[Rfam]
RNA sequence: AGACUGGGUAAUCUCUGCAGGCAACUGUGAUGGUGCUUCAUAUUCUCACAAUCACCUGGAGAGAUUCUGCAGUCU
Numbered sequence: 001a002g003a004c005u006g007g008g009u010a011a012u013c014u015c016u017g018c019a020g021g022c023a024a025c026u027g028u029g030a031u032g033g034u035g036c037u038u039c040a041u042a043u044u045c046u047c048a049c050a051a052u053c054a055c056c057u058g059g060a061g062a063g064a065u066u067c068u069g070c071a072g073u074c075u
Stems, first nucleotide, its partner, number of pairs: 003073004010066007020057002024052001026050005
Dot-bracket structure: ..((((...(((((((...((..(.(((((...............))))).)...))..)))))))...))))..
Shown here is a 75-nucleotide RNA from Myripristis murdjan, a member of the family "mir-216 microRNA precursor family". Gene Ontology terms of the family: miRNA-mediated post-transcriptional gene silencing and RISC complex. The literature on the family includes a 2008 paper in Gene by Shao et al., "Identification of novel chicken microRNAs and analysis of their genomic organization". Pairs were carried over by alignment from the consensus structure, which was predicted with WAR.